[Rfam]
RNA sequence: UAGGAGAAUCGGUAAAGCUCAGGAGGGAUAGCGCCAUGAGUUUUAACUACGAUCAUCAUCAUGUUGGUUGGAUCAGUGGCGCUAUCUAUCCUGAGUUUCAUGGGUUCUUCUU
Numbered sequence: 001u002a003g004g005a006g007a008a009u010c011g012g013u014a015a016a017g018c019u020c021a022g023g024a025g026g027g028a029u030a031g032c033g034c035c036a037u038g039a040g041u042u043u044u045a046a047c048u049a050c051g052a053u054c055a056u057c058a059u060c061a062u063g064u065u066g067g068u069u070g071g072a073u074c075a076g077u078g079g080c081g082c083u084a085u086c087u088a089u090c091c092u093g094a095g096u097u098u099c100a101u102g103g104g105u106u107c108u109u110c111u112u
Stems, first nucleotide, its partner, number of pairs: 010103001016097009026087010
The record is a 112-nucleotide RNA sequence from Morella rubra, which matches "MIR390 microRNA precursor family" in Rfam. It scores 102 bits against the family's covariance model. A reference for the family is Gustafson et al. (2005), "ASRP: the Arabidopsis Small RNA Project Database", Nucleic Acids Res. Its family is annotated with RISC complex and miRNA-mediated post-transcriptional gene silencing in the Gene Ontology. The family's consensus secondary structure was predicted with WAR.